[Rfam]
RNA sequence: GUCCUUCCCAACCCGCCCGCGAAUCCCUAUAUUCGUCAGUGCCGGAGCAAUCCGGAUAUGGCGAUAAACUGCCAUCGUAAUAAACCCUGCGGACCCGGGGGCAGUACCCGGCGCCUCCACCAGAACCCGUUCAAGGACCGCGAGCGGUUUCCGGCGGGGGCGAAAUAGGAUCGACGAGGGCGUAAAGGGUGAGCUUUUGCCCGGCAUGGUACCCGCCGUUAUCGGGCCAAAUUGUAGUUGCAAACGACAACUAUGCAGAGGCACGCCUCGCUGCGUAAUGCAGUGAUGUAUCCUCAUCUGAAGCCCUUGCGGUUUGCACCGUAAGGCGGGGUUCGGAGGCACCUGGCAACAGAAGCCUCCACU
Numbered sequence: 001g002u003c004c005u006u007c008c009c010a011a012c013c014c015g016c017c018c019g020c021g022a023a024u025c026c027c028u029a030u031a032u033u034c035g036u037c038a039g040u041g042c043c044g045g046a047g048c049a050a051u052c053c054g055g056a057u058a059u060g061g062c063g064a065u066a067a068a069c070u071g072c073c074a075u076c077g078u079a080a081u082a083a084a085c086c087c088u089g090c091g092g093a094c095c096c097g098g099g100g101g102c103a104g105u106a107c108c109c110g111g112c113g114c115c116u117c118c119a120c121c122a123g124a125a126c127c128c129g130u131u132c133a134a135g136g137a138c139c140g141c142g143a144g145c146g147g148u149u150u151c152c153g154g155c156g157g158g159g160g161c162g163a164a165a166u167a168g169g170a171u172c173g174a175c176g177a178g179g180g181c182g183u184a185a186a187g188g189g190u191g192a193g194c195u196u197u198u199g200c201c202c203g204g205c206a207u208g209g210u211a212c213c214c215g216c217c218g219u220u221a222u223c224g225g226g227c228c229a230a231a232u233u234g235u236a237g238u239u240g241c242a243a244a245c246g247a248c249a250a251c252u253a254u255g256c257a258g259a260g261g262c263a264c265g266c267c268u269c270g271c272u273g274c275g276u277a278a279u280g281c282a283g284u285g286a287u288g289u290a291u292c293c294u295c296a297u298c299u300g301a302a303g304c305c306c307u308u309g310c311g312g313u314u315u316g317c318a319c320c321g322u323a324a325g326g327c328g329g330g331g332u333u334c335g336g337a338g339g340c341a342c343c344u345g346g347c348a349a350c351a352g353a354a355g356c357c358u359c360c361a362c363u
Stems, first nucleotide, its partner, number of pairs: 042055004060201005071194002073191004085180003090176002095111005112162007202218004207229003212225002329344004335360006